[Rfam]
RNA sequence: AAGAGUAGCAGCACAGUGUGGUGAGAAUCCGCACCGCCUUAUAAACCAGGGUUCCUCGGCACUGUUUAUCAGCCGAGGGUUAGCCGGUCCUAAGGUCAUUCUUAACCGAAAUGAUCGAAAGGGAAUAGCGUUAAUAUUCGUUAGCCUCUCGUACAAUAAUGGCGACGGCUUGGGCAAAGCAUUCAGACCAUAUGCCAGGUCUGUCUGUACUAAAUUCUUGGAGAACUGUCACAGUGAGAAGAGAAUAAAGUCCCAGGUCCCAUGAAAAGCCGUACGAAGAGACCGUACCGAGAACUGAAACAGGUGUUUUAGGGUGAGUAGCCUAAGGCGUAU
Number, nucleotide and partner (000 for none) at each position: 001a000002a000003g000004a000005g000006u000007a000008g000009c000010a000011g000012c000013a000014c000015a000016g034017u033018g032019u031020g030021g029022u000023g000024a000025g000026a000027a000028u000029c021030c020031g019032c018033a017034c016035c330036g329037c328038c327039u000040u000041a000042u000043a309044a308045a307046c306047c000048a000049g289050g288051g000052u000053u000054c078055c077056u076057c075058g074059g073060c000061a000062c000063u071064g070065u000066u000067u000068a000069u000070c064071a063072g000073c059074c058075g057076a056077g055078g054079g000080u000081u000082a000083g000084c000085c285086g284087g283088u000089c122090c121091u000092a000093a000094g116095g115096u114097c113098a112099u111100u109101c108102u000103u000104a000105a000106c000107c000108g101109a100110a000111a099112u098113g097114a096115u095116c094117g000118a000119a000120a000121g090122g089123g000124a000125a000126u143127a142128g141129c140130g139131u000132u000133a000134a000135u000136a000137u000138u000139c130140g129141u128142u127143a126144g000145c000146c281147u280148c279149u278150c276151g275152u274153a000154c000155a000156a000157u000158a000159a000160u000161g271162g270163c269164g000165a000166c000167g259168g258169c257170u256171u255172g254173g253174g252175c000176a000177a000178a000179g000180c000181a000182u000183u000184c203185a202186g201187a200188c199189c198190a000191u000192a000193u000194g000195c000196c000197a000198g189199g188200u187201c186202u185203g184204u000205c000206u000207g000208u000209a000210c000211u000212a000213a000214a000215u245216u244217c243218u242219u241220g000221g000222a000223g000224a000225a235226c234227u233228g000229u000230c000231a000232c000233a227234g226235u225236g000237a000238g000239a000240a000241g219242a218243g217244a216245a215246u000247a000248a000249a000250g000251u000252c174253c173254c172255a171256g170257g169258u168259c167260c000261c000262a000263u000264g000265a000266a000267a000268a000269g163270c162271c161272g000273u000274a152275c151276g150277a000278a149279g148280a147281g146282a000283c087284c086285g085286u000287a000288c050289c049290g000291a000292g000293a000294a000295c304296u303297g000298a000299a000300a000301c000302a000303g296304g295305u000306g046307u045308u044309u043310u000311a000312g324313g323314g322315u000316g000317a000318g000319u000320a000321g000322c314323c313324u312325a000326a000327g038328g037329c036330g035331u000332a000333u000
RNA: Archaeal large subunit ribosomal RNA, nucleotides 1330 to 1662